Record summary
This 146-nucleotide RNA sequence from Macaca nemestrina belongs to the Rfam family "Small nucleolar RNA SNORA72". The family's RNA type in Rfam is H/ACA-box small nucleolar RNA. Rfam 15.1 lists 1,541 matches to the family in 547 species. Lineage of the source: Eukaryota > Eumetazoa > Eutheria > Cercopithecoidea > Macaca. Rfam links the family to the GO terms nucleolus and RNA processing.
[Rfam]
RNA sequence: UUGCGAAAUAUUCUCCGUGUUCUGAUUUGUGUAAUAGUCAGGACAAGGCCUAAACAUGUCCGCUUAUAUUGAAGACCCAAUGCGUUGUGUCCCCAGAACCUAGUUCUUUUCCCUAGGUCUGGGUUUUAUAAAUGCUUGGUGCAUAU
Numbered sequence: 001u002u003g004c005g006a007a008a009u010a011u012u013c014u015c016c017g018u019g020u021u022c023u024g025a026u027u028u029g030u031g032u033a034a035u036a037g038u039c040a041g042g043a044c045a046a047g048g049c050c051u052a053a054a055c056a057u058g059u060c061c062g063c064u065u066a067u068a069u070u071g072a073a074g075a076c077c078c079a080a081u082g083c084g085u086u087g088u089g090u091c092c093c094c095a096g097a098a099c100c101u102a103g104u105u106c107u108u109u110u111c112c113c114u115a116g117g118u119c120u121g122g123g124u125u126u127u128a129u130a131a132a133u134g135c136u137u138g139g140u141g142c143a144u145a146u
Base pairs, nucleotide, nucleotide: 003063004062005061018045019044020043021042022041023040024039025038026037027036077139078138079137080136082135083134093122094121095120096119097118099117100116101115102114103113